[Rfam]
RNA sequence: GGGUUUCCCCUUUACAACGGAUCGUCCGGCACGUUCCUGCCGGUGAAGGAAGGCAAU
Numbered sequence: 001g002g003g004u005u006u007c008c009c010c011u012u013u014a015c016a017a018c019g020g021a022u023c024g025u026c027c028g029g030c031a032c033g034u035u036c037c038u039g040c041c042g043g044u045g046a047a048g049g050a051a052g053g054c055a056a057u
Stems, first nucleotide, its partner, number of pairs: 009049006026043006
The family of this 57-nucleotide sequence from Knoellia locipacati is "msiK RNA". It scores 59 bits against the family's covariance model.